[Rfam]
RNA sequence: GUCAACGUCGGACGUUUCGGUCUAAUAAACCAUCUUCAGGACAUAUUCAUAUUGUAUUGAUAAUGUUAUAAUUUAUGAAUAUGUCCUGAAGAUGGUUUAUUAGACCGAAACGUCCGACGUUGAC
Numbered sequence: 001g002u003c004a005a006c007g008u009c010g011g012a013c014g015u016u017u018c019g020g021u022c023u024a025a026u027a028a029a030c031c032a033u034c035u036u037c038a039g040g041a042c043a044u045a046u047u048c049a050u051a052u053u054g055u056a057u058u059g060a061u062a063a064u065g066u067u068a069u070a071a072u073u074u075a076u077g078a079a080u081a082u083g084u085c086c087u088g089a090a091g092a093u094g095g096u097u098u099a100u101u102a103g104a105c106c107g108a109a110a111c112g113u114c115c116g117a118c119g120u121u122g123a124c
Stems, first nucleotide, its partner, number of pairs: 001124016018107012031094002034091015
Shown here is a 124-nucleotide RNA from Acanthosepion pharaonis, a member of the family "mir-2513 microRNA precursor family".
Rfam links the family to the GO terms miRNA-mediated post-transcriptional gene silencing and RISC complex.
The family has 2 seed sequences and 40 matches in Rfam 15.1.
Pairs were carried over by alignment from the consensus structure, which was predicted with RNAalifold.
Taxonomically the source falls in Acanthosepion (Eukaryota, Eumetazoa, Decapodiformes, Sepiida).
A search with the family's covariance model found it, with a score of 92 bits.